[Rfam]
RNA sequence: GUAGAGUAUUCAGAAUUGCAGUACGCAAUACCAACCGAGUGAAGUCACCGCGGUGGUAAGAUAAUACGGGUUUCGUGCCAAAAUAAACGUACUAA
Numbered sequence: 001g002u003a004g005a006g007u008a009u010u011c012a013g014a015a016u017u018g019c020a021g022u023a024c025g026c027a028a029u030a031c032c033a034a035c036c037g038a039g040u041g042a043a044g045u046c047a048c049c050g051c052g053g054u055g056g057u058a059a060g061a062u063a064a065u066a067c068g069g070g071u072u073u074c075g076u077g078c079c080a081a082a083a084u085a086a087a088c089g090u091a092c093u094a095a
Stems, first nucleotide, its partner, number of pairs: 006067005015029005030057003035053003039048002043090001069079003

SAM-I/IV (S-adenosyl methionine) riboswitch aptamer: a 95-nucleotide RNA from Sphingobacterium sp. SGL-16. It scores 44 bits against the family's covariance model. The family's consensus secondary structure is taken from published work. A reference for the family is Weinberg et al. (2008), "The aptamer core of SAM-IV riboswitches mimics the ligand-binding site of SAM-I riboswitches", RNA.